The record is a 75-nucleotide RNA sequence from Micromonospora sp. MH33, which matches "ASpks TB sRNA" in Rfam. A search with the family's covariance model found it, with a score of 60 bits. The organism belongs to Micromonospora, within Bacteria.
RNA sequence: CUUGAUCGACCCCAAAAGCAGCGCCUCCUGCCCGUCCCGCCCCUGCCCGUACGUGGCCAGGAGCGCCUGCGCCUC
Numbered sequence: 001c002u003u004g005a006u007c008g009a010c011c012c013c014a015a016a017a018g019c020a021g022c023g024c025c026u027c028c029u030g031c032c033c034g035u036c037c038c039g040c041c042c043c044u045g046c047c048c049g050u051a052c053g054u055g056g057c058c059a060g061g062a063g064c065g066c067c068u069g070c071g072c073c074u075c
Stems, first nucleotide, its partner, number of pairs: 014026001031071001033069001038065002043060003047056003